[Rfam]
This 131-nucleotide RNA sequence from Rhodobacterales bacterium HTCC2255 belongs to the Rfam family "FMN riboswitch aptamer (RFN element)". The base pairs follow the family's consensus structure, which is taken from published work.

RNA sequence: AAUAAUUCUCAGGGCGGGGUGUAAUUCCCCACCGGCGGUGAUAGCCCGCGAGCGCUCUUAAUAUAAGAGGUCAGCAGAGUUAGGUGAAAUUCCUGCGCCGACAGUUAUAGUCUGGAUGAUAGAGAAGGGGG
Numbered sequence: 001a002a003u004a005a006u007u008c009u010c011a012g013g014g015c016g017g018g019g020u021g022u023a024a025u026u027c028c029c030c031a032c033c034g035g036c037g038g039u040g041a042u043a044g045c046c047c048g049c050g051a052g053c054g055c056u057c058u059u060a061a062u063a064u065a066a067g068a069g070g071u072c073a074g075c076a077g078a079g080u081u082a083g084g085u086g087a088a089a090u091u092c093c094u095g096c097g098c099c100g101a102c103a104g105u106u107a108u109a110g111u112c113u114g115g116a117u118g119a120u121a122g123a124g125a126a127g128g129g130g131g
Stems, first nucleotide, its partner, number of pairs: 003129001006126005017029003031111002033100002035049004044098002052075002079096001081095004102114003
NCBI's taxonomy places the organism under Bacteria, Pseudomonadati, Pseudomonadota, Alphaproteobacteria, Rhodobacterales.